Background
Rfam assigns this 136-nucleotide sequence from Physeter macrocephalus to the family "Small nucleolar RNA SNORA1".
RNA sequence: AGCUUCAUUUUAGAUGCAAAUGGGAACUGUUGUGCAUGGUGUCCAGAUUAUUACUGAUGUGGCCACACUGAGACAUAGGUUUUGUUUCCAUCACCGUAAGUUUAUUGCAGUGGUGACAAGGAGACCUGUAACAUGU
Numbered sequence: 001a002g003c004u005u006c007a008u009u010u011u012a013g014a015u016g017c018a019a020a021u022g023g024g025a026a027c028u029g030u031u032g033u034g035c036a037u038g039g040u041g042u043c044c045a046g047a048u049u050a051u052u053a054c055u056g057a058u059g060u061g062g063c064c065a066c067a068c069u070g071a072g073a074c075a076u077a078g079g080u081u082u083u084g085u086u087u088c089c090a091u092c093a094c095c096g097u098a099a100g101u102u103u104a105u106u107g108c109a110g111u112g113g114u115g116a117c118a119a120g121g122a123g124a125c126c127u128g129u130a131a132c133a134u135g136u
Stems, first nucleotide, its partner, number of pairs: 002063003006059003021045004026040002075129005089115006
Rfam classes the family as an H/ACA-box small nucleolar RNA.
It scores 119 bits against the family's covariance model.
Rfam's curators write: ACA1 is a member of the H/ACA class of snoRNA that guide the sites of modification of uridines to pseudouridines.
NCBI's taxonomy places the organism under Eukaryota, Craniata, Artiodactyla, Odontoceti, Physeter.